[Rfam]
RNA sequence: GGAACAAUAACGCCCUCUUGCUAGAACAAGAAGGGCGUUAUUGCUCCUUUUAUU
Numbered sequence: 001g002g003a004a005c006a007a008u009a010a011c012g013c014c015c016u017c018u019u020g021c022u023a024g025a026a027c028a029a030g031a032a033g034g035g036c037g038u039u040a041u042u043g044c045u046c047c048u049u050u051u052a053u054u
Stems, first nucleotide, its partner, number of pairs: 001047003005043007015033001016031005
A member of the RNA family "Plastid-psbA-3 3UTR RNA", 54 nucleotides long. It is annotated as a cis-regulatory element. Rfam describes the family as follows. Plastid psbA-3 is a non-coding RNA (ncRNA) present in plastids. It was identified in inverted repeat sequences in the 3 prime untranslate region (3UTR) of photosystem II quinone-binding protein (psbA). Pairs were carried over by alignment from the consensus structure, which was predicted with LocARNA.